[Rfam]
RNA sequence: GACCAAAUCCGGCCAAAACCUGUAAAGGUGCGGGGGAAAUGAACGAAAGUACAUAUCGGUAAGCCGUAUCGUACUAGGGGUGAAUCGCGACGAAAGCGUAGGGCUGAUCUCCCAGCCCGAAUCCGACAGCUAACCUCGCCGGCCAAUUCCAGGAGGAAUA
Numbered sequence: 001g002a003c004c005a006a007a008u009c010c011g012g013c014c015a016a017a018a019c020c021u022g023u024a025a026a027g028g029u030g031c032g033g034g035g036g037a038a039a040u041g042a043a044c045g046a047a048a049g050u051a052c053a054u055a056u057c058g059g060u061a062a063g064c065c066g067u068a069u070c071g072u073a074c075u076a077g078g079g080g081u082g083a084a085u086c087g088c089g090a091c092g093a094a095a096g097c098g099u100a101g102g103g104c105u106g107a108u109c110u111c112c113c114a115g116c117c118c119g120a121a122u123c124c125g126a127c128a129g130c131u132a133a134c135c136u137c138g139c140c141g142g143c144c145a146a147u148u149c150c151a152g153g154a155g156g157a158a159u160a
Stems, first nucleotide, its partner, number of pairs: 011144004018029003030139006040077001078124003086098003101118004
RNA: c-di-AMP riboswitch aptamer (ydaO/yuaA leader)
Organism: Cohnella cholangitidis